Background: This 94-nucleotide RNA from Sorghum bicolor belongs to the Rfam family "MIR5387 microRNA precursor family". Rfam links the family to the GO terms miRNA-mediated post-transcriptional gene silencing and RISC complex. Pairs were carried over by alignment from the consensus structure, which was predicted with RNAalifold. It scores 76 bits against the family's covariance model.
RNA sequence: CCGUGGCUGGAACCGGUGCUAAAGGGUCCCUUUAACACCGGCGCGUAACACCAGCCGGUGUUAAAGGCCCUUUAGCACCGGUUCCAGCCACGGA
Numbered sequence: 001c002c003g004u005g006g007c008u009g010g011a012a013c014c015g016g017u018g019c020u021a022a023a024g025g026g027u028c029c030c031u032u033u034a035a036c037a038c039c040g041g042c043g044c045g046u047a048a049c050a051c052c053a054g055c056c057g058g059u060g061u062u063a064a065a066g067g068c069c070c071u072u073u074a075g076c077a078c079c080g081g082u083u084c085c086a087g088c089c090a091c092g093g094a
Stems, first nucleotide, its partner, number of pairs: 003091025030066001034062003038058002045051002